[Rfam]
Nucleotides: 376
Stems, first nucleotide, its partner, number of pairs: 001372007019345006033332005043320005048068005054083007118140002121137005153189006160180005168203007207235005213229003219250005253291005260286003265280001267278001272311001275307003349365005
Number, partner (000 for none) and nucleotide at each position: 001372g002371g003370g004369g005368a006367u007366g008000a009000u010000c011000g012000g013000u014000u015000u016000c017000g018000a019345c020344a021343u022342u023341g024340c025000c026000u027000g028000a029000g030000c031000a032000a033332c034331u035330g036329u037328g038000a039000g040000a041000a042000g043320c044319g045318g046317g047316u048068c049067g050066a051065g052064g053000a054083u055082g056081c057080a058079g059078g060077g061000u062000u063000a064052u065051c066050u067049c068048g069000u070000u071000a072000a073000c074000g075000a076000u077060c078059u079058c080057u081056g082055c083054a084000a085000a086000a087000u088000a089000u090000a091000a092000g093000u094000g095000c096000c097000a098000a099000u100000u101000c102000a103000a104000a105000g106000c107000g108000c109000a110000c111000u112000g113000a114000c115000u116000u117000c118140g119139c120000c121137c122136u123135c124134g125133c126000u127000g128000c129000a130000u131000a132000a133125g134124c135123g136122a137121g138000c139119g140118c141000a142000c143000u144000a145000a146000a147000g148000a149000a150000g151000u152000c153189c154188g155187u156186c157185g158184g159000u160180c161179c162178g163177g164176g165000a166000a167000u168203g169202c170201u171200c172199u173198c174197u175000a176164c177163c178162c179161g180160g181000u182000c183000a184158c185157c186156g187155g188154c189153g190000c191000a192000a193000u194000c195000u196000u197174a198173g199172a200171g201170a202169g203168c204000u205000u206000g207235u208234u209233c210232c211231g212000u213229c214228g215227u216000u217000c218000c219250g220249c221248c222247u223246u224000g225000g226000g227215g228214c229213g230000c231211c232210g233209g234208g235207a236000g237000a238000c239000u240000u241000a242000a243000a244000c245000c246223a247222g248221g249220g250219c251000u252000g253291g254290g255289c256288u257287u258000g259000u260286c261285g262284g263000a264000g265280u266000a267278g268000g269000u270000g271000c272311c273000a274000g275307u276306g277305g278267c279000a280265a281000a282000u283000u284262c285261c286260g287257g288256a289255g290254c291253c292000g293000a294000g295000u296000a297000g298000a299000a300000c301000g302000a303000u304000u305277u306276c307275a308000c309000u310000g311272g312000a313000u314000a315000c316047a317046c318045c319044c320043g321000u322000a323000g324000a325000a326000g327000g328037c329036a330035c331034a332033g333000a334000a335000a336000c337000a338000c339000a340024g341023c342022a343021g344020u345019g346000g347000a348000c349365g350364g351363g352362g353361g354000u355000u356000c357000a358000a359000u360000u361353c362352c363351c364350c365349c366007c367006a368005u369004c370003u371002c372001c373000a374000c375000c376000a
transfer-messenger RNA: a 376-nucleotide RNA from Marisediminicola antarctica. Lineage of the source: Bacteria > Actinomycetes > Micrococcales > Microbacteriaceae > Marisediminicola. For this family Rfam cites "Phylogenetic analysis of tmRNA secondary structure" (Williams and Bartel, RNA, 1996). By type it is a non-coding RNA gene. Rfam's curators write: Bacterial tmRNA, also known as 10Sa RNA or SsrA, is named for its dual tRNA and mRNA-like properties. Its role is to liberate the mRNA from a stalled ribosome. To accomplish this part of the tmRNA is used as a reading frame that ends in a translation stop signal.